[Rfam]
RNA sequence: GCAGGCAUCCUGCCGGGAGGGUGAGAACCCUCGCAGGGUUCGACAAAACCUGACAGGUUUUGCAGGGCCAGCGGCCCCCCGAAGGGCGAGCUGCUACGCAGCGAGUGUAUCCCUCCCUCACCGCCA
Numbered sequence: 001g002c003a004g005g006c007a008u009c010c011u012g013c014c015g016g017g018a019g020g021g022u023g024a025g026a027a028c029c030c031u032c033g034c035a036g037g038g039u040u041c042g043a044c045a046a047a048a049c050c051u052g053a054c055a056g057g058u059u060u061u062g063c064a065g066g067g068c069c070a071g072c073g074g075c076c077c078c079c080c081g082a083a084g085g086g087c088g089a090g091c092u093g094c095u096a097c098g099c100a101g102c103g104a105g106u107g108u109a110u111c112c113c114u115c116c117c118u119c120a121c122c123g124c125c126a
Base pairs, nucleotide, nucleotide: 015117016116017115018114019113020112021111022109032088033087034085039083040082041081042080046059047058066076067075068074069073